[Rfam]
RNA sequence: ACUAAGUAUUUUACGAUUAAGAAGCAACUGUCUUUUGUACAGAUUGUGUAAUAAUAU
Numbered sequence: 001a002c003u004a005a006g007u008a009u010u011u012u013a014c015g016a017u018u019a020a021g022a023a024g025c026a027a028c029u030g031u032c033u034u035u036u037g038u039a040c041a042g043a044u045u046g047u048g049u050a051a052u053a054a055u056a057u
Stems, first nucleotide, its partner, number of pairs: 018037005024031002

Rfam assigns this 57-nucleotide sequence from Rhodamnia argentea to the family "Plastid-rps18 3UTR RNA". Plastid rps18 is a non-coding RNA (ncRNA) present in plastids. It was identified as a short stem-loop motif in the 3 prime untranslate region (3UTR) of rps18 gene. It scores 69 bits against the family's covariance model.